About this RNA: The record is an 87-nucleotide RNA sequence from Pisciglobus halotolerans, which matches "BsrC" in Rfam. It is annotated as a small RNA. The source organism's lineage runs through Bacteria, Bacillati, Bacillota, Carnobacteriaceae and Pisciglobus. The 301 nucleotide sequence from Kouji Nakamura has been trimmed to a highly conserved ~85 nucleotide long core to form this family. A reference for the family is Saito et al. (2008), "Novel small RNA-encoding genes in the intergenic regions of Bacillus subtilis", Gene. The family's consensus secondary structure was predicted with CMfinder.

RNA sequence: UCUCAUUUAAACAACACAAACCCUACCACUUUUGUGUCCUUACAGUCCUUUAACUGCGCCAGUUUGAGUAAACUUCAUUAAAAUGGA
Dot-bracket structure: ..................................((..(((.((((......)))).)..))..)).....................